[Rfam]
RNA: Ribosomal S15 leader
RNA sequence: GCUGAGAGCUGAGUUAGAGAUUAACUCUCAGCUAUUUCACAAUCAUUUUGGAGUGUUAUAAUGCCUCUAAGUGUUGAAGAAAAAGAAAAAAUUAUUUUAAAUUUAGGCCGUGAUGCU
Number, nucleotide and partner (000 for none) at each position: 001g000002c000003u000004g000005a000006g000007a026008g025009c000010u023011g022012a021013g000014u000015u000016a000017g000018a000019g000020a000021u012022u011023a010024a000025c008026u007027c000028u000029c000030a000031g000032c000033u000034a000035u000036u000037u000038c000039a000040c000041a000042a000043u000044c000045a000046u000047u071048u070049u069050g068051g067052a066053g065054u000055g000056u000057u000058a000059u000060a000061a000062u000063g000064c000065c053066u052067c051068u050069a049070a048071g047072u000073g000074u000075u000076g000077a000078a000079g000080a000081a000082a000083a000084a000085g000086a000087a000088a000089a000090a000091a000092u000093u000094a000095u000096u000097u000098u000099a000100a000101a000102u000103u000104u000105a000106g000107g000108c000109c000110g000111u000112g000113a000114u000115g000116c000117u000